[Rfam]
RNA sequence: UGUAUUUAAUACUGUAAGUUGCUCUGGAUAACAGCGUCUGCUAAAUGACUAAAA
Numbered sequence: 001u002g003u004a005u006u007u008a009a010u011a012c013u014g015u016a017a018g019u020u021g022c023u024c025u026g027g028a029u030a031a032c033a034g035c036g037u038c039u040g041c042u043a044a045a046u047g048a049c050u051a052a053a054a
Stems, first nucleotide, its partner, number of pairs: 013043001014041003020036004025031001
This 54-nucleotide RNA from Salmo trutta belongs to the Rfam family "UnaL2 LINE 3' element". Gene Ontology term of the family: transposition, RNA-mediated. Pairs were carried over by alignment from the consensus structure, which is taken from published work.